[Rfam]
RNA sequence: CCCUUAUUCAGAGUGAUGGAGAUACAAAGGAUCUGAGAAGUCACGGCAACCCCGGACCGGCAUUGGGAAGCUUCCCAUGAGCGAGAAAGGAAGGUGCCAACCUGAGCGAGAAAUCGAACAAUAAGAG
Numbered sequence: 001c002c003c004u005u006a007u008u009c010a011g012a013g014u015g016a017u018g019g020a021g022a023u024a025c026a027a028a029g030g031a032u033c034u035g036a037g038a039a040g041u042c043a044c045g046g047c048a049a050c051c052c053c054g055g056a057c058c059g060g061c062a063u064u065g066g067g068a069a070g071c072u073u074c075c076c077a078u079g080a081g082c083g084a085g086a087a088a089g090g091a092a093g094g095u096g097c098c099a100a101c102c103u104g105a106g107c108g109a110g111a112a113a114u115c116g117a118a119c120a121a122u123a124a125g126a127g
Stems, first nucleotide, its partner, number of pairs: 001127001003125006013044005021033003030103001045098004050094002052090002107116003
The record is a 127-nucleotide RNA from Lachnospiraceae bacterium AM48-27BH, which matches "SAM riboswitch aptamer (S box leader)" in Rfam. NCBI's taxonomy places the organism under Bacteria, Bacillati, Bacillota, Clostridia, Lachnospiraceae. Gene Ontology term of the family: regulation of gene expression.